Ruegeria cis52 sRNA: a 178-nucleotide sequence from Roseovarius litorisediminis. On this family, see Rivers et al., Front Microbiol 2016: "Experimental Identification of Small Non-Coding RNAs in the Model Marine Bacterium Ruegeria pomeroyi DSS-3". Pairs were carried over by alignment from the consensus structure, which was predicted with RNAfold. The match comes from Rfam's covariance-model search (125 bits). NCBI's taxonomy places the organism under Bacteria, Pseudomonadota, Alphaproteobacteria, Roseobacteraceae, Roseovarius.

RNA sequence: UGCGCAGCGCAUGUUUGAACACGAUAGUGGUGAAUUUCACGCCCUUCAGCCGCGCGGUGCGGAUAUAUUGCGCGGUCAUCACUUCGGCCAUCGAGGCGCGGGUCAUACGGGCGAUGUAUCCCAUACCAUAAAGCGCGAUGGUCAGCACCGGCAGGGUGAAGUUUGCAAAAGUGGCAUC
Numbered sequence: 001u002g003c004g005c006a007g008c009g010c011a012u013g014u015u016u017g018a019a020c021a022c023g024a025u026a027g028u029g030g031u032g033a034a035u036u037u038c039a040c041g042c043c044c045u046u047c048a049g050c051c052g053c054g055c056g057g058u059g060c061g062g063a064u065a066u067a068u069u070g071c072g073c074g075g076u077c078a079u080c081a082c083u084u085c086g087g088c089c090a091u092c093g094a095g096g097c098g099c100g101g102g103u104c105a106u107a108c109g110g111g112c113g114a115u116g117u118a119u120c121c122c123a124u125a126c127c128a129u130a131a132a133g134c135g136c137g138a139u140g141g142u143c144a145g146c147a148c149c150g151g152c153a154g155g156g157u158g159a160a161g162u163u164u165g166c167a168a169a170a171g172u173g174g175c176a177u178c
Stems, first nucleotide, its partner, number of pairs: 005140002008137003012133001014131002016128002021124001028123003038113001040111001042109001046105001048103001050101005055075001057073006082096005147177001149174001151172002155164002